[Rfam]
Nucleotides: 221
Base pairs, nucleotide, nucleotide: 001221002220003219011210014206015205016204017203018202019201020200024196025195
Number, partner (000 for none) and nucleotide at each position: 001221u002220g003219g004000a005000a006000a007000u008000a009000g010000a011210u012000u013000g014206g015205g016204a017203a018202g019201a020200g021000c022000c023000a024196u025195a026000u027000g028000a029000u030000a031000c032000a033000a034000g035000u036000a037000u038000g039000u040000a041000u042000c043000a044000u045000u046000u047000c048000a049000g050000g051000g052000a053000a054000c055000a056000c057000g058000u059000g060000g061000c062000u063000c064000c065000a066000g067000c068000a069000a070000g071000a072000g073000a074000g075000a076000g077000u078000a079000a080000g081000a082000g083000c084000u085000u086000g087000a088000g089000u090000g091000a092000a093000g094000c095000u096000c097000a098000c099000a100000a101000a102000a103000a104000c105000c106000a107000g108000a109000g110000c111000c112000u113000a114000u115000u116000g117000c118000a119000g120000a121000a122000g123000u124000g125000c126000u127000g128000c129000a130000a131000g132000a133000a134000g135000c136000a137000g138000g139000a140000c141000a142000a143000g144000u145000a146000c147000a148000u149000c150000a151000a152000c153000a154000a155000g156000c157000u158000c159000a160000u161000a162000a163000a164000g165000g166000g167000u168000a169000u170000g171000a172000a173000g174000u175000c176000u177000c178000u179000g180000a181000a182000g183000u184000c185000c186000a187000u188000a189000g190000u191000u192000a193000g194000c195025u196024g197000c198000u199000c200020u201019u202018c203017u204016u205015c206014c207000a208000g209000c210011a211000c212000a213000g214000c215000a216000g217000u218000a219003c220002c221001a

The family of this 221-nucleotide sequence from Arabidopsis lyrata is "MIR854 microRNA precursor family". Taxonomically the source falls in Arabidopsis lyrata (Eukaryota, Euphyllophyta, Pentapetalae, Arabidopsis). The literature on the family includes a 2006 paper in Plant Cell by Arteaga-Vazquez et al., "A family of microRNAs present in plants and animals".